Description: The family of this 126-nucleotide RNA from Aquibacillus koreensis is "ylbH leader". Rfam classes the family as a cis-regulatory leader. The organism belongs to Aquibacillus, within Bacteria.
RNA sequence: AAAAAAAAGCCUGCAGAUUAUCAUAAUCUGCAGGCCCUUUUUGUUUUCUAAUUUAGAAAACAAAAAGGCAAAGGGAGAGGAGAAACCGGAGGAGGACUUAUGGGGAAACGUAAGUCUUCUCCGUGU
Numbered sequence: 001a002a003a004a005a006a007a008a009g010c011c012u013g014c015a016g017a018u019u020a021u022c023a024u025a026a027u028c029u030g031c032a033g034g035c036c037c038u039u040u041u042u043g044u045u046u047u048c049u050a051a052u053u054u055a056g057a058a059a060a061c062a063a064a065a066a067g068g069c070a071a072a073g074g075g076a077g078a079g080g081a082g083a084a085a086c087c088g089g090a091g092g093a094g095g096a097c098u099u100a101u102g103g104g105g106a107a108a109c110g111u112a113a114g115u116c117u118u119c120u121c122c123g124u125g126u
Stems, first nucleotide, its partner, number of pairs: 009035012036075005045060003049056001087123004092119009